[Rfam]
RNA sequence: GGGUUUAACUCCUGCUUGUUACCGUUUCAUCUGGCCGAGGCCGGAUGUCGUUUUGGUGUCUAGUUCCUAAAGGAACCGGGAGCACCAUCUGCGUAGGCUUGUGGUUUAAGGCUUGCGCCGCCUACGGUCUUGGAUAGCCCCCGCAAAGCAGGGACCCCAAUUUUUUCCAGCAGGGCCGAUCGCUCGCCCCU
Numbered sequence: 001g002g003g004u005u006u007a008a009c010u011c012c013u014g015c016u017u018g019u020u021a022c023c024g025u026u027u028c029a030u031c032u033g034g035c036c037g038a039g040g041c042c043g044g045a046u047g048u049c050g051u052u053u054u055g056g057u058g059u060c061u062a063g064u065u066c067c068u069a070a071a072g073g074a075a076c077c078g079g080g081a082g083c084a085c086c087a088u089c090u091g092c093g094u095a096g097g098c099u100u101g102u103g104g105u106u107u108a109a110g111g112c113u114u115g116c117g118c119c120g121c122c123u124a125c126g127g128u129c130u131u132g133g134a135u136a137g138c139c140c141c142c143g144c145a146a147a148g149c150a151g152g153g154a155c156c157c158c159a160a161u162u163u164u165u166u167c168c169a170g171c172a173g174g175g176c177c178g179a180u181c182g183c184u185c186g187c188c189c190c191u
Base pairs, nucleotide, nucleotide: 002157003156005154006153011148013146023050024049028047029046030045031044032043033042034041035040054087055086056085057084058083059082060079061078063076064075065074066073091144092143093142096139097138098137099136104135105134106133107132108131109130110129111128112127113126173190174189175188177186178185